[Rfam]
RNA sequence: UAAAAUAUUCUGUUGUUUUCUCCCUAUUUGUUGGUGCAUUGUUGGUAACGAUGGUGUGCUAAGCAACAAAGAAAUGAUUGGAUAAAUUCUAAAUGCAAUAGAAUUUAUAGG
Numbered sequence: 001u002a003a004a005a006u007a008u009u010c011u012g013u014u015g016u017u018u019u020c021u022c023c024c025u026a027u028u029u030g031u032u033g034g035u036g037c038a039u040u041g042u043u044g045g046u047a048a049c050g051a052u053g054g055u056g057u058g059c060u061a062a063g064c065a066a067c068a069a070a071g072a073a074a075u076g077a078u079u080g081g082a083u084a085a086a087u088u089c090u091a092a093a094u095g096c097a098a099u100a101g102a103a104u105u106u107a108u109a110g111g
Stems, first nucleotide, its partner, number of pairs: 002019006028069005033060012085105006